[Rfam]
Rfam assigns this 29-nucleotide sequence from Streptosporangium saharense to the family "CRISPR RNA direct repeat element".
RNA sequence: GUUGCGAUUCCUCCAGGAUGAUGAGCGAC
Number, nucleotide and partner (000 for none) at each position: 001g029002u028003u027004g026005c025006g000007a019008u018009u000010c017011c016012u000013c000014c000015a000016g011017g010018a008019u007020g000021a000022u000023g000024a000025g005026c004027g003028a002029c001

The base pairs follow the family's consensus structure, which was predicted with WAR. NCBI's taxonomy places the organism under Bacteria, Actinomycetota, Actinomycetes, Streptosporangiales, Streptosporangium.